RNA sequence: GCGAGGUGAUGAUUCAAAUUCAUUAAUCUGUCAAUCCGCUGAUACUGGUAACAGUCUUGAUGUUAUUAUGAAUCUCGACAGGCUCUGAUCGC
Numbered sequence: 001g002c003g004a005g006g007u008g009a010u011g012a013u014u015c016a017a018a019u020u021c022a023u024u025a026a027u028c029u030g031u032c033a034a035u036c037c038g039c040u041g042a043u044a045c046u047g048g049u050a051a052c053a054g055u056c057u058u059g060a061u062g063u064u065a066u067u068a069u070g071a072a073u074c075u076c077g078a079c080a081g082g083c084u085c086u087g088a089u090c091g092c
Stems, first nucleotide, its partner, number of pairs: 001092004
RNA: Small nucleolar RNA snoR14
Organism: Cannabis sativa